The family of this 401-nucleotide RNA from Chlorobium chlorochromatii is "transfer-messenger RNA". The family's RNA type in Rfam is non-coding RNA gene. About the family: Bacterial tmRNA, also known as 10Sa RNA or SsrA, is named for its dual tRNA and mRNA-like properties. Its role is to liberate the mRNA from a stalled ribosome. The family's consensus secondary structure is taken from published work. Its Rfam clan is "tRNA clan".

RNA sequence: GGGGAUGACAGGCUUUCGACAGGGUAGGUGUAAGGUGGCGUUGCACUCCGAGUUUCAGCAUGGAUGGACUCGUUAAAGAAGUCUAUGCAACCUUUAGAUGCAGACGAUUAUUCGUAUGCAAUGGCUGCCUAAUUAGCAAAAGUUAAUUAACCAGCCAUCGCUCUUCAGCGGAGGCGCUUACUCCAAGGCUGUUAGAGUGGCAUAAUUCGCGCUUGAGCUCUGCUCGCGCAAGUAAGCUCCGUUUUGUAUUGCCUGAUGUGCUUAGCGGGUAUUUAUUCGGGAUAGUAAGUUGAACGUUACAAGUGUCGUACCAACUUAUGAAUCUUAAACACUUGAGAUGAGUGUGGUAGCGUUAUCAAGCAAUAUUCUGGACGCGGGUUCGAAUCCCGCCAUCUCCACCA
Numbered sequence: 001g002g003g004g005a006u007g008a009c010a011g012g013c014u015u016u017c018g019a020c021a022g023g024g025u026a027g028g029u030g031u032a033a034g035g036u037g038g039c040g041u042u043g044c045a046c047u048c049c050g051a052g053u054u055u056c057a058g059c060a061u062g063g064a065u066g067g068a069c070u071c072g073u074u075a076a077a078g079a080a081g082u083c084u085a086u087g088c089a090a091c092c093u094u095u096a097g098a099u100g101c102a103g104a105c106g107a108u109u110a111u112u113c114g115u116a117u118g119c120a121a122u123g124g125c126u127g128c129c130u131a132a133u134u135a136g137c138a139a140a141a142g143u144u145a146a147u148u149a150a151c152c153a154g155c156c157a158u159c160g161c162u163c164u165u166c167a168g169c170g171g172a173g174g175c176g177c178u179u180a181c182u183c184c185a186a187g188g189c190u191g192u193u194a195g196a197g198u199g200g201c202a203u204a205a206u207u208c209g210c211g212c213u214u215g216a217g218c219u220c221u222g223c224u225c226g227c228g229c230a231a232g233u234a235a236g237c238u239c240c241g242u243u244u245u246g247u248a249u250u251g252c253c254u255g256a257u258g259u260g261c262u263u264a265g266c267g268g269g270u271a272u273u274u275a276u277u278c279g280g281g282a283u284a285g286u287a288a289g290u291u292g293a294a295c296g297u298u299a300c301a302a303g304u305g306u307c308g309u310a311c312c313a314a315c316u317u318a319u320g321a322a323u324c325u326u327a328a329a330c331a332c333u334u335g336a337g338a339u340g341a342g343u344g345u346g347g348u349a350g351c352g353u354u355a356u357c358a359a360g361c362a363a364u365a366u367u368c369u370g371g372a373c374g375c376g377g378g379u380u381c382g383a384a385u386c387c388c389g390c391c392a393u394c395u396c397c398a399c400c401a
Stems, first nucleotide, its partner, number of pairs: 001397007020370007031360001034357010044344005049072005059087007124155003130150001132148001159199004166191003176237007238269006252281005285319006295308002300335002304331002374390005